[Rfam]
RNA sequence: GUCUGUCCAGUGCCCCUUUUAUAUUGUCCUACUGGUGACCCUGUAAUGAAAGCAGUGCAAUGUUAAAAGGGCAUUGGCCAGGGA
Numbered sequence: 001g002u003c004u005g006u007c008c009a010g011u012g013c014c015c016c017u018u019u020u021a022u023a024u025u026g027u028c029c030u031a032c033u034g035g036u037g038a039c040c041c042u043g044u045a046a047u048g049a050a051a052g053c054a055g056u057g058c059a060a061u062g063u064u065a066a067a068a069g070g071g072c073a074u075u076g077g078c079c080a081g082g083g084a
Base pairs, nucleotide, nucleotide: 002083003082005079007077008076009075010074012072013071014070015069017067018066019065022062023061024060025059026058027057029055030054
Shown here is an 84-nucleotide RNA sequence from Oncorhynchus kisutch, a member of the family "mir-130 microRNA precursor family". The family has 9 seed sequences and 2,580 matches in Rfam 15.1. The literature on the family includes a 2002 paper in Curr Biol by Lagos-Quintana et al., "Identification of tissue-specific microRNAs from mouse". The match comes from Rfam's covariance-model search (50 bits).